[Rfam]
RNA sequence: UGCAACAUUAUUAAAGGAGUUGUUCCCCACCCGGGAGCUACUUUACCAUAUUCCUAUUUG
Numbered sequence: 001u002g003c004a005a006c007a008u009u010a011u012u013a014a015a016g017g018a019g020u021u022g023u024u025c026c027c028c029a030c031c032c033g034g035g036a037g038c039u040a041c042u043u044u045a046c047c048a049u050a051u052u053c054c055u056a057u058u059u060g
Base pairs, nucleotide, nucleotide: 016044017043018042019041020040022038023037024036025035026034
Rfam assigns this 60-nucleotide sequence from Anisodus acutangulus to the family "Plastid-psbN 5UTR RNA". Rfam describes the family as follows. Plastid psbN is a non-coding RNA (ncRNA) recognised in plastids. It was reported as a conserved 11 stem-loop in the prime untranslated region (5UTR) of psbN genes. It has been reported that the motif is retained in a subset of mature transcripts in barley, which can suggests a possible role in transcript alternative 5 prime processing. For this family Rfam cites "Retrograde signaling in plants: A critical review focusing on the GUN pathway and beyond" (Richter et al., Plant Commun, 2023). The family has 63 seed sequences and 2,345 matches in Rfam 15.1. Lineage of the source: Eukaryota > Euphyllophyta > Mesangiospermae > Gunneridae > Anisodus.